About this RNA:
This 66-nucleotide RNA from Scopulibacillus darangshiensis belongs to the Rfam family "Bacillaceae-1 RNA". The organism belongs to Scopulibacillus, within Bacteria. Rfam classes the family as a small RNA.

RNA sequence: GAUAGCGGAACUUCGACUAAGAACGUGACGUCCUGUCACAACGUCGAAAUUAGCGCGUCCUGCGCG
Numbered sequence: 001g002a003u004a005g006c007g008g009a010a011c012u013u014c015g016a017c018u019a020a021g022a023a024c025g026u027g028a029c030g031u032c033c034u035g036u037c038a039c040a041a042c043g044u045c046g047a048a049a050u051u052a053g054c055g056c057g058u059c060c061u062g063c064g065c066g
Stems, first nucleotide, its partner, number of pairs: 012048006025039005053065004